[Rfam]
The family of this 301-nucleotide RNA from Albula glossodonta is "Nuclear RNase P". A reference for the family is Frank and Pace (1998), "Ribonuclease P: unity and diversity in a tRNA processing ribozyme", Annu Rev Biochem. Its family is annotated with ribonuclease P complex, ribonuclease P activity and tRNA processing in the Gene Ontology. Lineage of the source: Eukaryota > Gnathostomata > Teleostomi > Albuliformes > Albula.
RNA sequence: GUUGGAGUAAGCUCACUCAAGGUCACAUAGAGAGAGACACUCAAAUCAGCACCUUGGAGAAGGUCCGAAACAAGAGCCAAUUGCUGCCAUAGUAGGGCAAUGUCUGAAGUAGGUGUGCAAGUGCACAGAAAAAAGGUUGGGCCAAUGUGUGAUAAUAACAGGGGGAACAACUUAUUACAAAGUUGUGCUCGUUUGUAGGUGCAGUCAUGCAGGUUUAGAAUUGCUAGAGGCAGGCAAAUGAGUAUAGCAUAUGAGCUGGAAUAUACAUGUAGAACCAAGUUCAGACAACUCUCCAUUUAGU
Numbered sequence: 001g002u003u004g005g006a007g008u009a010a011g012c013u014c015a016c017u018c019a020a021g022g023u024c025a026c027a028u029a030g031a032g033a034g035a036g037a038c039a040c041u042c043a044a045a046u047c048a049g050c051a052c053c054u055u056g057g058a059g060a061a062g063g064u065c066c067g068a069a070a071c072a073a074g075a076g077c078c079a080a081u082u083g084c085u086g087c088c089a090u091a092g093u094a095g096g097g098c099a100a101u102g103u104c105u106g107a108a109g110u111a112g113g114u115g116u117g118c119a120a121g122u123g124c125a126c127a128g129a130a131a132a133a134a135g136g137u138u139g140g141g142c143c144a145a146u147g148u149g150u151g152a153u154a155a156u157a158a159c160a161g162g163g164g165g166a167a168c169a170a171c172u173u174a175u176u177a178c179a180a181a182g183u184u185g186u187g188c189u190c191g192u193u194u195g196u197a198g199g200u201g202c203a204g205u206c207a208u209g210c211a212g213g214u215u216u217a218g219a220a221u222u223g224c225u226a227g228a229g230g231c232a233g234g235c236a237a238a239u240g241a242g243u244a245u246a247g248c249a250u251a252u253g254a255g256c257u258g259g260a261a262u263a264u265a266c267a268u269g270u271a272g273a274a275c276c277a278a279g280u281u282c283a284g285a286c287a288a289c290u291c292u293c294c295a296u297u298u299a300g301u
Stems, first nucleotide, its partner, number of pairs: 001301004007294001009292001012255004018056005032042003065284001067282003076231003085099004100116006118227001120225004136214003256272003260268001